Saccharopolyspora sRNA 350: a 508-nucleotide RNA sequence from Amycolatopsis acidicola. The literature on the family includes a 2013 paper in PLoS One by Liu et al., "Prediction and characterization of small non-coding RNAs related to secondary metabolites in Saccharopolyspora erythraea". The base pairs follow the family's consensus structure, which was predicted with RNAfold. The organism belongs to Amycolatopsis, within Bacteria. By type it is an antisense RNA. Gene Ontology term of the family: regulation of secondary metabolite biosynthetic process.
RNA sequence: UUGACCGUGUACUCCCACAGAUCCUCCGGGUCGGCGAGCGUCUUGUCGCCGAAGUGGUCCCCGUUCGCGAGGACGCCGAGCGUGGUCUGCUGGCCGUACUGGCCGGGCCCGAUCUUCUCGACCUUGCCGUUGGCGAUCAGGUACGCCUGGUCCGAGGUGUGUCCGAACUCGACGAUCACGUCGCCGGUCUCGUAGCUGCGCUGCUCGAACCGGCCGGCGAGCGCGGUGAGCACAUCGGUGUCGUCGAAACCGCGCAACAGCGGCAAUUCGCACAGUUCGGCGGGGAUCACGCGCACGUCGUCCCCGGUGCUGACGAACGUGACCCGGCCGUCGCCGAUGGUGUAGGAGAGCCGGCGGUUGACCCGGUACGCGCCGCCCGAAGCCUGCACCCAGGGCAGCGCCCGGAGCAGCCAGCGGGACGAGAUCGCCUGCAUCUGCGGCACGGACUUGGUCGUGGUGGCCAGGUUCCGCGCCGCCGCGGUGCUCAGGCUCAGCUGCGGGGCACCGU
Numbered sequence: 001u002u003g004a005c006c007g008u009g010u011a012c013u014c015c016c017a018c019a020g021a022u023c024c025u026c027c028g029g030g031u032c033g034g035c036g037a038g039c040g041u042c043u044u045g046u047c048g049c050c051g052a053a054g055u056g057g058u059c060c061c062c063g064u065u066c067g068c069g070a071g072g073a074c075g076c077c078g079a080g081c082g083u084g085g086u087c088u089g090c091u092g093g094c095c096g097u098a099c100u101g102g103c104c105g106g107g108c109c110c111g112a113u114c115u116u117c118u119c120g121a122c123c124u125u126g127c128c129g130u131u132g133g134c135g136a137u138c139a140g141g142u143a144c145g146c147c148u149g150g151u152c153c154g155a156g157g158u159g160u161g162u163c164c165g166a167a168c169u170c171g172a173c174g175a176u177c178a179c180g181u182c183g184c185c186g187g188u189c190u191c192g193u194a195g196c197u198g199c200g201c202u203g204c205u206c207g208a209a210c211c212g213g214c215c216g217g218c219g220a221g222c223g224c225g226g227u228g229a230g231c232a233c234a235u236c237g238g239u240g241u242c243g244u245c246g247a248a249a250c251c252g253c254g255c256a257a258c259a260g261c262g263g264c265a266a267u268u269c270g271c272a273c274a275g276u277u278c279g280g281c282g283g284g285g286a287u288c289a290c291g292c293g294c295a296c297g298u299c300g301u302c303c304c305c306g307g308u309g310c311u312g313a314c315g316a317a318c319g320u321g322a323c324c325c326g327g328c329c330g331u332c333g334c335c336g337a338u339g340g341u342g343u344a345g346g347a348g349a350g351c352c353g354g355c356g357g358u359u360g361a362c363c364c365g366g367u368a369c370g371c372g373c374c375g376c377c378c379g380a381a382g383c384c385u386g387c388a389c390c391c392a393g394g395g396c397a398g399c400g401c402c403c404g405g406a407g408c409a410g411c412c413a414g415c416g417g418g419a420c421g422a423g424a425u426c427g428c429c430u431g432c433a434u435c436u437g438c439g440g441c442a443c444g445g446a447c448u449u450g451g452u453c454g455u456g457g458u459g460g461c462c463a464g465g466u467u468c469c470g471c472g473c474c475g476c477c478g479c480g481g482u483g484c485u486c487a488g489g490c491u492c493a494g495c496u497g498c499g500g501g502g503c504a505c506c507g508u
Base pairs, nucleotide, nucleotide: 007389008388009387010386011385014382018327020325025322026321029318031316032315037311038310039309040308041307042306045305048302050300051299052298054233055232058229059228061226062225063224064223066111067110075103077102079100080099082097083096084095085094086093117221118220119219120218122217123216127212129210130209132205133204134203135202138198139197140196144195150191154189155188156185157184158183160178161177164174165173235295240290241289243287244286245285250282253279254278256277257276258275260271261270262269329342330341331340332339351379353377354376355375356374357373362370391431392430393429394428397425399423401421403418407415437476438475439474440473443470444469445468446467447465448464449463450462451461452460480506481505482504484499486497487496488495